[Rfam]
RNA sequence: AUUCUUUCUGUCGUGUAUCCACCAUUAAUGCAACCUUAAAUGCUUCA
Numbered sequence: 001a002u003u004c005u006u007u008c009u010g011u012c013g014u015g016u017a018u019c020c021a022c023c024a025u026u027a028a029u030g031c032a033a034c035c036u037u038a039a040a041u042g043c044u045u046c047a
Stems, first nucleotide, its partner, number of pairs: 010025002013022001032044001034042001
The record is a 47-nucleotide RNA from Castanea mollissima, which matches "Plastid-ycf3 group II-D1 intron" in Rfam. The match comes from Rfam's covariance-model search (59 bits). Its family is annotated with Group II intron splicing in the Gene Ontology. Plastid rpl16 is a non-coding RNA (ncRNA) recognised in plastids.